[Rfam]
A member of the RNA family "Lysine riboswitch aptamer" from Ferrimonas aestuarii, 200 nucleotides long. Rfam describes the family as follows. Riboswitches are metabolite binding domains within certain messenger RNAs that serve as precision sensors for their corresponding targets. Taxonomically the source falls in Ferrimonas (Bacteria, Pseudomonadati, Gammaproteobacteria, Ferrimonadaceae).
RNA sequence: CCGCUAGGUAGAGGCGCAUCGCCUAUCAGUAGAUCGGAAGAGGUUGAUACCCUUUGAGGCCGAUUGAAAGGAGUCGAUGCCGAAGUGGCUGAGCCAUCGAACUCAGUUGCUGGGGUUAUUCUUAAUAGGAAUGACACUGCCAUAGUAAUCUCCGACAGGAUGUUGGAAUGCUUGAUUUACUAUGGAGCGCUACUGAAAGG
Numbered sequence: 001c002c003g004c005u006a007g008g009u010a011g012a013g014g015c016g017c018a019u020c021g022c023c024u025a026u027c028a029g030u031a032g033a034u035c036g037g038a039a040g041a042g043g044u045u046g047a048u049a050c051c052c053u054u055u056g057a058g059g060c061c062g063a064u065u066g067a068a069a070g071g072a073g074u075c076g077a078u079g080c081c082g083a084a085g086u087g088g089c090u091g092a093g094c095c096a097u098c099g100a101a102c103u104c105a106g107u108u109g110c111u112g113g114g115g116u117u118a119u120u121c122u123u124a125a126u127a128g129g130a131a132u133g134a135c136a137c138u139g140c141c142a143u144a145g146u147a148a149u150c151u152c153c154g155a156c157a158g159g160a161u162g163u164u165g166g167a168a169u170g171c172u173u174g175a176u177u178u179a180c181u182a183u184g185g186a187g188c189g190c191u192a193c194u195g196a197a198a199g200g
Base pairs, nucleotide, nucleotide: 007194008193009192010191011190016080017079018078019077020076021075023073024072032065033064034063035062036061037060084111085110086109087108088107089106090105091104092103093102112138113137115135116134117133118132119131120130121129122128140185141184142183143182144181145180146179147178148177